Burkholderia sRNA 54: a 76-nucleotide sequence from Paraburkholderia sp. LEh10. The organism belongs to Paraburkholderia, within Bacteria. The family's consensus secondary structure was predicted with RNAfold. Its family is annotated with bacterial biofilm matrix in the Gene Ontology. It is annotated as a small RNA. Rfam's curators write: Identified by RNA-seq, RACE and Northern blot. Strongly expressed in biofilm.
RNA sequence: CGACCUCUCGGUUCUGGCAAUGGCCCUCGGAAUAGCCAGAUCCUUUUUGGCCGACCUGACCGGUCGGCCAUUCUUU
Numbered sequence: 001c002g003a004c005c006u007c008u009c010g011g012u013u014c015u016g017g018c019a020a021u022g023g024c025c026c027u028c029g030g031a032a033u034a035g036c037c038a039g040a041u042c043c044u045u046u047u048u049g050g051c052c053g054a055c056c057u058g059a060c061c062g063g064u065c066g067g068c069c070a071u072u073c074u075u076u
Base pairs, nucleotide, nucleotide: 010043011042013040014039015038016037017036018035024030025029048070049069050068051067052066053065054064055063056062